[Rfam]
RNA sequence: GGCGCGUUAAUCAUUCGUUAGCCUUUCCGCGCGAUAACCAACCCAUCCAGUCGUCUGGAUGUCGAGUGGGUCCUGUCCACUCUGUUUGAUGCCUCCCUGUACGACUUUCGAGCCGCCCCCUCCGGGGCGGCUUUCUUUUU
Number, nucleotide and partner (000 for none) at each position: 001g039002g038003c000004g012005c000006g000007u000008u000009a000010a000011u000012c004013a000014u036015u000016c000017g000018u000019u034020a000021g032022c031023c000024u029025u000026u000027c000028c000029g024030c000031g022032c021033g000034a019035u000036a014037a000038c002039c001040a000041a000042c000043c000044c000045a060046u059047c058048c057049a000050g000051u000052c000053g000054u000055c000056u000057g048058g047059a046060u045061g000062u000063c000064g082065a081066g080067u079068g078069g077070g000071u000072c000073c000074u000075g000076u000077c069078c068079a067080c066081u065082c064083u000084g000085u000086u000087u000088g000089a100090u099091g098092c000093c000094u000095c000096c000097c000098u091099g090100u089101a000102c000103g000104a000105c000106u000107u000108u000109c000110g133111a132112g131113c130114c129115g128116c127117c126118c125119c000120c000121u000122c000123c000124g000125g118126g117127g116128c115129g114130g113131c112132u111133u110134u000135c000136u000137u000138u000139u000140u000
Description: Rfam assigns this 140-nucleotide sequence from Methylobacterium oryzihabitans to the family "Alphaproteobacterial sRNA BjrC1505". The organism belongs to Methylobacterium, within Bacteria. On this family, see Madhugiri et al., RNA Biol 2012: "Small RNAs of the Bradyrhizobium/Rhodopseudomonas lineage and their analysis". A search with the family's covariance model found it, with a score of 77 bits.